Record summary
The record is a 355-nucleotide sequence from Candidatus Arcanibacter lacustris, which matches "Alphaproteobacteria transfer-messenger RNA" in Rfam. The base pairs follow the family's consensus structure, which is taken from published work.
[Rfam]
RNA sequence: UAGCUUUUAAUAAAUUUGUUUUGGUGGUACAAUAAGUAUGCUAGGUGACUAGCUAUAGUAAUAAACGUUCCUUGAAAUAGGCGUUACGGACCCGGGGGCAGCGCCCGGCGCCUCCACCAUAAAAAACUAUGGGGGCGAAUUAGGAUCGACGUGCGUAAUAAAGAAGUGGUCUUUUACUCGGGAUGAUUCCACCGAUUGUUAUUUAUAACAAUUAUGGGUCGAAACUUAUAAAUGCCAAUGAUAAUACAAGGCAACCGGCUAACCAAAACUUCGCUUUCAGCUCUAUAGCUGCGGCAUAAACUGGUUAAUUGGGAGCGGCUUUGGGGUGUUGCCGAGCAACAGAAAACACCCUACU
Numbered sequence: 001u002a003g004c005u006u007u008u009a010a011u012a013a014a015u016u017u018g019u020u021u022u023g024g025u026g027g028u029a030c031a032a033u034a035a036g037u038a039u040g041c042u043a044g045g046u047g048a049c050u051a052g053c054u055a056u057a058g059u060a061a062u063a064a065a066c067g068u069u070c071c072u073u074g075a076a077a078u079a080g081g082c083g084u085u086a087c088g089g090a091c092c093c094g095g096g097g098g099c100a101g102c103g104c105c106c107g108g109c110g111c112c113u114c115c116a117c118c119a120u121a122a123a124a125a126a127c128u129a130u131g132g133g134g135g136c137g138a139a140u141u142a143g144g145a146u147c148g149a150c151g152u153g154c155g156u157a158a159u160a161a162a163g164a165a166g167u168g169g170u171c172u173u174u175u176a177c178u179c180g181g182g183a184u185g186a187u188u189c190c191a192c193c194g195a196u197u198g199u200u201a202u203u204u205a206u207a208a209c210a211a212u213u214a215u216g217g218g219u220c221g222a223a224a225c226u227u228a229u230a231a232a233u234g235c236c237a238a239u240g241a242u243a244a245u246a247c248a249a250g251g252c253a254a255c256c257g258g259c260u261a262a263c264c265a266a267a268a269c270u271u272c273g274c275u276u277u278c279a280g281c282u283c284u285a286u287a288g289c290u291g292c293g294g295c296a297u298a299a300a301c302u303g304g305u306u307a308a309u310u311g312g313g314a315g316c317g318g319c320u321u322u323g324g325g326g327u328g329u330u331g332c333c334g335a336g337c338a339a340c341a342g343a344a345a346a347c348a349c350c351c352u353a354c355u
Stems, first nucleotide, its partner, number of pairs: 040053005057178005067171001069169001071166003082155003086152003092108005109137007179194003184222001189218002316334004325350005
The match comes from Rfam's covariance-model search (199 bits).
By type it is a non-coding RNA gene.